A member of the RNA family "Bacterial large subunit ribosomal RNA" from Gemmata obscuriglobus, 253 nucleotides of a longer RNA.
Rfam 15.1 lists 51,934 matches to the family in 10,816 species.
NCBI's taxonomy places the organism under Bacteria, Pseudomonadati, Planctomycetia, Gemmataceae, Gemmata.

[Rfam]
RNA sequence: GGAUACUUGCGGGGCUUUCUCCCUAGUACGAGAGGACUGGGAGGGACACACCGCUGAUGUUCCAGUUGUGGCGCUAGCCGCACCGCUGGGUAGUCACGUGUGGACGGGAUAAACGCUGAAGGCAUAUAAGCGUGAAACUUCCCCCUAGAUCAGGUAUCCCGCGCGAGCGAAGGCUCCUCGUAGACCACGAGGUCGAUAGGCCGGACGUGUACGCGUGGCAACACGCUCAGCUAACCGGUACUAACAGCCGACC
Numbered sequence: 001g002g003a004u005a006c007u008u009g010c011g012g013g014g015c016u017u018u019c020u021c022c023c024u025a026g027u028a029c030g031a032g033a034g035g036a037c038u039g040g041g042a043g044g045g046a047c048a049c050a051c052c053g054c055u056g057a058u059g060u061u062c063c064a065g066u067u068g069u070g071g072c073g074c075u076a077g078c079c080g081c082a083c084c085g086c087u088g089g090g091u092a093g094u095c096a097c098g099u100g101u102g103g104a105c106g107g108g109a110u111a112a113a114c115g116c117u118g119a120a121g122g123c124a125u126a127u128a129a130g131c132g133u134g135a136a137a138c139u140u141c142c143c144c145c146u147a148g149a150u151c152a153g154g155u156a157u158c159c160c161g162c163g164c165g166a167g168c169g170a171a172g173g174c175u176c177c178u179c180g181u182a183g184a185c186c187a188c189g190a191g192g193u194c195g196a197u198a199g200g201c202c203g204g205a206c207g208u209g210u211a212c213g214c215g216u217g218g219c220a221a222c223a224c225g226c227u228c229a230g231c232u233a234a235c236c237g238g239u240a241c242u243a244a245c246a247g248c249c250g251a252c253c
Stems, first nucleotide, its partner, number of pairs: 001159008011145004017045007047102005055096003062089005067082006106140003113133005162169002172249004176192005197243003200239005207231001213226005
Dot-bracket structure: ((((((((..((((..(((((((...............))))))).(((((...(((....(((((((((((....))))))..)))))....))).)))))...(((....(((((...........)))))....))).))))......))))))))..((....))..(((((((((.......)))))....((((((((..(.....(((((....)))))....)...))))).)))..))))....